This 80-nucleotide sequence from Parambassis ranga belongs to the Rfam family "Small nucleolar RNA SNORD72". Rfam classes the family as a C/D-box small nucleolar RNA. About the family: snoRNA HBII-240 belongs to the CD family of snoRNAs. NCBI's taxonomy places the organism under Eukaryota, Opisthokonta, Teleostomi, Acanthomorphata, Parambassis.

[Rfam]
RNA sequence: GUCUUGUCAGUGAUGUUUCAAAACACAAAUGUCUGAACAAAUGACUUACUGUGAUUCAUUCUUUUUAGCUGAGACAAGAC
Numbered sequence: 001g002u003c004u005u006g007u008c009a010g011u012g013a014u015g016u017u018u019c020a021a022a023a024c025a026c027a028a029a030u031g032u033c034u035g036a037a038c039a040a041a042u043g044a045c046u047u048a049c050u051g052u053g054a055u056u057c058a059u060u061c062u063u064u065u066u067a068g069c070u071g072a073g074a075c076a077a078g079a080c
Stems, first nucleotide, its partner, number of pairs: 002079007